Source information:
The family of this 75-nucleotide RNA from Drosophila busckii is "mir-375 microRNA precursor family". The base pairs follow the family's consensus structure, which was predicted with RNAalifold. The family has 47 seed sequences and 824 matches in Rfam 15.1. The organism belongs to Dorsilopha, within Eukaryota. The match comes from Rfam's covariance-model search (49 bits).
RNA sequence: AAUUACUUGAGCCAAGGGAAUACAAACUGUUACCACGUAUUGCAAAUAAGUUUGUUCGUUUGGCUUAAGUUAUUU
Numbered sequence: 001a002a003u004u005a006c007u008u009g010a011g012c013c014a015a016g017g018g019a020a021u022a023c024a025a026a027c028u029g030u031u032a033c034c035a036c037g038u039a040u041u042g043c044a045a046a047u048a049a050g051u052u053u054g055u056u057c058g059u060u061u062g063g064c065u066u067a068a069g070u071u072a073u074u075u
Base pairs, nucleotide, nucleotide: 001074002073003072005070006069007068008067009066010065011064012063013062018057022055023054024053025052027050028049